[Rfam]
RNA sequence: GCUGGGACCAACUGGGACCAGUUGCGUGGCCAAAUGAAGUGUGUUUUGCCCACCGUUGCCGGCUUCCUAGAGUAAAGUGGAGAUCUCUGUCUGCUUUAGGAGAGCCGACUGAAGUAGAUCGUUCCCCUCCAUACACG
Numbered sequence: 001g002c003u004g005g006g007a008c009c010a011a012c013u014g015g016g017a018c019c020a021g022u023u024g025c026g027u028g029g030c031c032a033a034a035u036g037a038a039g040u041g042u043g044u045u046u047u048g049c050c051c052a053c054c055g056u057u058g059c060c061g062g063c064u065u066c067c068u069a070g071a072g073u074a075a076a077g078u079g080g081a082g083a084u085c086u087c088u089g090u091c092u093g094c095u096u097u098a099g100g101a102g103a104g105c106c107g108a109c110u111g112a113a114g115u116a117g118a119u120c121g122u123u124c125c126c127c128u129c130c131a132u133a134c135a136c137g
Stems, first nucleotide, its partner, number of pairs: 004067003008062002012058001026053004031048001036045002079130004087121001089119003093115007
Rfam assigns this 137-nucleotide sequence from Nothocercus julius to the family "Small Cajal body specific RNA 3".
Rfam classes the family as a small Cajal body RNA.
Rfam links the family to the GO terms nucleolus, RNA processing and Cajal body.
Rfam 15.1 lists 642 matches to the family in 535 species.
It scores 90 bits against the family's covariance model.
scaRNAs are a specific class of small nuclear RNAs which localise to the Cajal bodies and guide the modification of RNA polymerase II transcribed spliceosomal RNAs U1, U2, U4, U5 and U12.